[Rfam]
RNA sequence: UGUUUGCCUAAUCUCAGCUGGUAAUUCUGAGUUGAGCAAGACCUCAAGUUACUAGCCGAGAUUACACAAGUG
Numbered sequence: 001u002g003u004u005u006g007c008c009u010a011a012u013c014u015c016a017g018c019u020g021g022u023a024a025u026u027c028u029g030a031g032u033u034g035a036g037c038a039a040g041a042c043c044u045c046a047a048g049u050u051a052c053u054a055g056c057c058g059a060g061a062u063u064a065c066a067c068a069a070g071u072g
Stems, first nucleotide, its partner, number of pairs: 003070004009064007017056001021053001023050002026048001028046004
The record is a 72-nucleotide sequence from Magallana gigas, which matches "mir-216 microRNA precursor family" in Rfam. Pairs were carried over by alignment from the consensus structure, which was predicted with WAR. For this family Rfam cites "Identification of novel chicken microRNAs and analysis of their genomic organization" (Shao et al., Gene, 2008). The organism belongs to Magallana, within Eukaryota.